[Rfam]
RNA sequence: UCCGGGGGAAGCUCACUGCCGAGGCCACUCACUGGGUGCAUUCGUCACCCUUAAGCCCCGCCUCGGGGAAGGUCUGAGGGAAGGGCCGCCCGCAGCUCUAGCAGAGCUCCGCCCGCGAUGGGCGGGUGAGCCACCAGCAAGGGGGGGCGCCGCGAAUUUGGGCCCGUCCUGGGCAGGAGAAACCGAGCUGGUUACGUUGGGGUUCGGGAAACUCCCUGCCCCGCGGAACCCCGGUGGAUGCUCGUAGCCCCGCGGUGCUUUGAGACAGACUCACGGCCGGCAAUUGUUGAGUCCAAUGGGUGAGGUGGGGCACCGCCCUACAACCCAAUUCAGACUACUCUCCCCCGGA
Number, nucleotide and partner (000 for none) at each position: 001u349002c348003c347004g346005g000006g000007g343008g342009a341010a000011g000012c304013u303014c302015a301016c300017u299018g000019c000020c065021g064022a063023g062024g061025c000026c000027a000028c000029u000030c000031a000032c000033u000034g050035g049036g048037u047038g046039c044040a000041u000042u000043c000044g039045u000046c038047a037048c036049c035050c034051u000052u000053a000054a000055g000056c000057c000058c000059c000060g000061c024062c023063u022064c021065g020066g000067g000068g000069a000070a000071g000072g000073u000074c333075u332076g331077a330078g329079g000080g000081a000082a000083g000084g278085g277086c276087c275088g000089c000090c000091c000092g000093c000094a108095g107096c106097u105098c104099u000100a000101g000102c000103a000104g098105a097106g096107c095108u094109c125110c124111g123112c122113c121114c120115g000116c000117g000118a000119u000120g114121g113122g112123c111124g110125g109126g274127u273128g272129a271130g270131c000132c268133a000134c000135c000136a000137g000138c000139a000140a000141g000142g000143g000144g000145g000146g259147g258148c257149g256150c255151c254152g253153c252154g251155a000156a000157u000158u000159u000160g000161g000162g000163c000164c000165c000166g000167u000168c000169c000170u000171g000172g000173g000174c000175a000176g000177g000178a000179g000180a000181a000182a000183c000184c000185g000186a000187g000188c000189u000190g000191g000192u000193u000194a000195c000196g000197u000198u000199g000200g000201g000202g000203u000204u000205c000206g000207g000208g000209a000210a000211a000212c000213u000214c000215c000216c000217u000218g000219c000220c000221c000222c000223g000224c000225g000226g000227a000228a000229c000230c000231c000232c000233g000234g000235u000236g000237g000238a000239u000240g000241c000242u000243c000244g000245u000246a000247g000248c000249c000250c000251c154252g153253c152254g151255g150256u149257g148258c147259u146260u000261u000262g000263a000264g000265a000266c000267a000268g132269a000270c130271u129272c128273a127274c126275g087276g086277c085278c084279g000280g000281c000282a000283a000284u000285u000286g000287u000288u000289g000290a000291g000292u000293c000294c000295a000296a000297u000298g000299g017300g016301u015302g014303a013304g012305g321306u320307g319308g318309g317310g316311c315312a000313c000314c000315g311316c310317c309318c308319u307320a306321c305322a000323a000324c000325c000326c000327a000328a000329u078330u077331c076332a075333g074334a000335c000336u000337a000338c000339u000340c000341u009342c008343c007344c000345c000346c004347g003348g002349a001
RNA: Nuclear RNase P
Organism: Semnornis frantzii